Molybdenum/Tungsten riboswitch aptamer (Moco RNA motif): a 157-nucleotide sequence from Xenorhabdus bovienii. The organism belongs to Xenorhabdus bovienii, within Bacteria.

Nucleotides: 157
Base pairs, nucleotide, nucleotide: 003151004150006148011143012142013141015139016138019078020077021076025072026071027070028069029068033065034064035063036062080095081094082093083092084091098124099123100122101121102120103119105118106117107116108115109114125135126134
Number, partner (000 for none) and nucleotide at each position: 001000a002000a003151u004150u005000g006148g007000u008000a009000u010000u011143a012142a013141c014000u015139c016138c017000u018000a019078g020077c021076c022000u023000c024000u025072g026071u027070g028069u029068c030000u031000a032000a033065g034064u035063c036062g037000u038000u039000g040000u041000u042000c043000u044000a045000u046000c047000a048000c049000a050000c051000g052000g053000a054000u055000a056000c057000c058000a059000c060000a061000u062036u063035g064034a065033u066000a067000u068029g069028a070027u071026g072025c073000u074000u075000u076021g077020g078019c079000c080095g081094u082093g083092g084091c085000u086000c087000c088000u089000g090000a091084g092083u093082c094081a095080c096000c097000a098124g099123g100122g101121u102120g103119c104000a105118a106117g107116g108115u109114a110000g111000a112000a113000a114109u115108g116107c117106c118105u119103g120102c121101a122100u123099c124098u125135c126134c127000c128000g129000c130000a131000u132000u133000u134126g135125g136000a137000a138016g139015g140000u141013g142012u143011u144000a145000u146000u147000g148006u149000g150004g151003a152000a153000c154000a155000a156000c157000u